[Rfam]
RNA sequence: UAAAGCUAGGUUUGUGGUUGAAAGUCGAUGCCAGUCGCAGGCGAAACGAUCCACGUAAGUUAAACAAAGUUUUAAUGAGCAUGGUGCGGUAUAGAGGUAAGUCCUGCCAAUUUUUAAAUUGAGAGAGCUAGUAGUGAGAGGUUAAUUCCGGGUAGCAAAAGUUCCAGCAGGCGAGUGUGGGGUCAAAAACCAGGUCAACUAGCUUUA
Numbered sequence: 001u002a003a004a005g006c007u008a009g010g011u012u013u014g015u016g017g018u019u020g021a022a023a024g025u026c027g028a029u030g031c032c033a034g035u036c037g038c039a040g041g042c043g044a045a046a047c048g049a050u051c052c053a054c055g056u057a058a059g060u061u062a063a064a065c066a067a068a069g070u071u072u073u074a075a076u077g078a079g080c081a082u083g084g085u086g087c088g089g090u091a092u093a094g095a096g097g098u099a100a101g102u103c104c105u106g107c108c109a110a111u112u113u114u115u116a117a118a119u120u121g122a123g124a125g126a127g128c129u130a131g132u133a134g135u136g137a138g139a140g141g142u143u144a145a146u147u148c149c150g151g152g153u154a155g156c157a158a159a160a161g162u163u164c165c166a167g168c169a170g171g172c173g174a175g176u177g178u179g180g181g182g183u184c185a186a187a188a189a190c191c192a193g194g195u196c197a198a199c200u201a202g203c204u205u206u207a
Base pairs, nucleotide, nucleotide: 001207002206003205004204005203006202007201008200009199012198013197014196015192016191017190018189019188028178029177030176031041034090035089036088037087038086039085050084051083058076060074062072063071064070082185103171104170105169106168107167108121109120110119111118112117125164126163127162128161134156135155140149141148
The family of this 207-nucleotide RNA from Clostridium paridis is "raiA RNA". The base pairs follow the family's consensus structure, which is taken from published work. A search with the family's covariance model found it, with a score of 204 bits.